[Rfam]
RNA sequence: AACAAAGUAAUAAGCAAAACUCGUAUAUCCUCUGAAUAUGGCAGAGAGUAUCUACCGGAAACCUUAAAUUUCCGACUAUGAGUGAUUUUGAUAUACUA
Numbered sequence: 001a002a003c004a005a006a007g008u009a010a011u012a013a014g015c016a017a018a019a020c021u022c023g024u025a026u027a028u029c030c031u032c033u034g035a036a037u038a039u040g041g042c043a044g045a046g047a048g049u050a051u052c053u054a055c056c057g058g059a060a061a062c063c064u065u066a067a068a069u070u071u072c073c074g075a076c077u078a079u080g081a082g083u084g085a086u087u088u089u090g091a092u093a094u095a096c097u098a
Stems, first nucleotide, its partner, number of pairs: 019083007030046005056074006
Shown here is a 98-nucleotide RNA from Clostridium sartagoforme, a member of the family "Purine riboswitch aptamer". The family is grouped with related families in Rfam's "Purine riboswitches". Its family is annotated with purine nucleobase biosynthetic process in the Gene Ontology.